[Rfam]
RNA sequence: GCAAUGGGUGGCUAGGGUUCCGGUCCGCGGCGCGGAUGGCUGGUCCGAGAGCUGCCGACCUCGCAGGAGGUUACACGGAGGGAUAAAAGCCCGGGAGAU
Dot-bracket structure: ......((((((..((...(((((((((...))))))..).)).))....))))))((((((....)))))).(.[...(((.......))).)..]..

The family of this 99-nucleotide RNA from Ectothiorhodospiraceae bacterium 2226 is "Guanidine-I riboswitch aptamer".
On this family, see Battaglia et al., RNA 2017: "Structural basis for guanidine sensing by the ykkC family of riboswitches".
The source organism's lineage runs through Bacteria, Pseudomonadati, Pseudomonadota, Gammaproteobacteria and Ectothiorhodospiraceae.
The base pairs follow the family's consensus structure.